[Rfam]
RNA sequence: ACUCAACGAAGUUUACAUUAAAAGAGGUGAUUUGCCGUUGUAAGAGCAAGCUGUUUUGUACAGAUCCUCGAUCAGUGGGGUAGCCUCAAACCUGUCUAAUUAAGGGUUU
Dot-bracket structure: .......................(((((......(((((....(((....(((.......)))...)))....)))))....)))))......................

A member of the RNA family "6S-Flavo RNA", 109 nucleotides long. The family's RNA type in Rfam is small RNA.